[Rfam]
RNA sequence: GGGGGAGUACGUUCGCAAGAGUGAAACUUAAAGAAAUUGACGGAAUGGCACCACAAGACGUGGAGCGUGCGGUUUAAUUUGACUCAACACGGGGAACUUUACCAGAUCCGGACAGGGUGAGGAUUGACAGAUUGAGUGUUCUUUCUCGAUCCCCUGAAUGGUGGUGCAUGGCCGCUUUUGGUCGGUGGAGUGAUUUGUUUGGUUGAUUCCGUCAACGGACGAGAUCCAAGCUGCCCAGUAGGAUUCAGAAUUGCCCAUAGGAUAGCAAUCCCCUCCGCGGGUUUUUCCCAAGGAGGGGCGAUAUUCGUUUGUAUCCUUCUCUGCGGGAUUCCUUGUUUUGCGCAAGGUGAGAUUUUGGGCAACAGCAGGUCUGUGAUGCUCCUCAAUGUUCUGGGCGACACGCGCACUACAAUGUCAGUGAGAACAAGAAAAACGACUUUUGUCGGACCUACUUGAUCAAAAGAGUGGGAAAACCCCGGAAUCACAUAGACCCACUUGGGACCGAGUAUUGCAAUUAUUGGUCGCGCAACGAGGAAUGUCUCGUAGGCGCAGCUCAUCAAACUGUGCCGAUUACGUCCCUGCCAUUUGUACACA
Numbered sequence: 001g002g003g004g005g006a007g008u009a010c011g012u013u014c015g016c017a018a019g020a021g022u023g024a025a026a027c028u029u030a031a032a033g034a035a036a037u038u039g040a041c042g043g044a045a046u047g048g049c050a051c052c053a054c055a056a057g058a059c060g061u062g063g064a065g066c067g068u069g070c071g072g073u074u075u076a077a078u079u080u081g082a083c084u085c086a087a088c089a090c091g092g093g094g095a096a097c098u099u100u101a102c103c104a105g106a107u108c109c110g111g112a113c114a115g116g117g118u119g120a121g122g123a124u125u126g127a128c129a130g131a132u133u134g135a136g137u138g139u140u141c142u143u144u145c146u147c148g149a150u151c152c153c154c155u156g157a158a159u160g161g162u163g164g165u166g167c168a169u170g171g172c173c174g175c176u177u178u179u180g181g182u183c184g185g186u187g188g189a190g191u192g193a194u195u196u197g198u199u200u201g202g203u204u205g206a207u208u209c210c211g212u213c214a215a216c217g218g219a220c221g222a223g224a225u226c227c228a229a230g231c232u233g234c235c236c237a238g239u240a241g242g243a244u245u246c247a248g249a250a251u252u253g254c255c256c257a258u259a260g261g262a263u264a265g266c267a268a269u270c271c272c273c274u275c276c277g278c279g280g281g282u283u284u285u286u287c288c289c290a291a292g293g294a295g296g297g298g299c300g301a302u303a304u305u306c307g308u309u310u311g312u313a314u315c316c317u318u319c320u321c322u323g324c325g326g327g328a329u330u331c332c333u334u335g336u337u338u339u340g341c342g343c344a345a346g347g348u349g350a351g352a353u354u355u356u357g358g359g360c361a362a363c364a365g366c367a368g369g370u371c372u373g374u375g376a377u378g379c380u381c382c383u384c385a386a387u388g389u390u391c392u393g394g395g396c397g398a399c400a401c402g403c404g405c406a407c408u409a410c411a412a413u414g415u416c417a418g419u420g421a422g423a424a425c426a427a428g429a430a431a432a433a434c435g436a437c438u439u440u441u442g443u444c445g446g447a448c449c450u451a452c453u454u455g456a457u458c459a460a461a462a463g464a465g466u467g468g469g470a471a472a473a474c475c476c477c478g479g480a481a482u483c484a485c486a487u488a489g490a491c492c493c494a495c496u497u498g499g500g501a502c503c504g505a506g507u508a509u510u511g512c513a514a515u516u517a518u519u520g521g522u523c524g525c526g527c528a529a530c531g532a533g534g535a536a537u538g539u540c541u542c543g544u545a546g547g548c549g550c551a552g553c554u555c556a557u558c559a560a561a562c563u564g565u566g567c568c569g570a571u572u573a574c575g576u577c578c579c580u581g582c583c584a585u586u587u588g589u590a591c592a593c594a
Stems, first nucleotide, its partner, number of pairs: 002029003011022004038592002040589003044586007053576002057540005062410001064408002067405005072399002078093004102394005108388001113156005126145002129142003160382002163380004169376001170374001171370003174366003181220003185216002187196003200211003226358004231326004237320001240317004329349001331347006414491003418487003428475001452469001455466001457464002498530001502526001503524003507520002546568007

Background: The record is a 594-nucleotide part of an RNA from Trypanosoma theileri, which matches "Eukaryotic small subunit ribosomal RNA" in Rfam. Lineage of the source: Eukaryota > Discoba > Metakinetoplastina > Trypanosomatida > Trypanosoma.